Source information: The record is a 56-nucleotide RNA sequence from Myrsine africana, which matches "Plastid-psbA-3 3UTR RNA" in Rfam. The sequence is in the family's curated seed alignment. NCBI's taxonomy places the organism under Eukaryota, Streptophytina, eudicotyledons, Primulaceae, Myrsine. Rfam's curators write: Plastid psbA-3 is a non-coding RNA (ncRNA) present in plastids. Rfam classes the family as a cis-regulatory element.
RNA sequence: AAAAGGAGCAAUAACAACCUCUUGAUAAAACAAGAGUUUUGUUAUUGCUCCCCUUA
Numbered sequence: 001a002a003a004a005g006g007a008g009c010a011a012u013a014a015c016a017a018c019c020u021c022u023u024g025a026u027a028a029a030a031c032a033a034g035a036g037u038u039u040u041g042u043u044a045u046u047g048c049u050c051c052c053c054u055u056a
Stems, first nucleotide, its partner, number of pairs: 002054001005051011019036006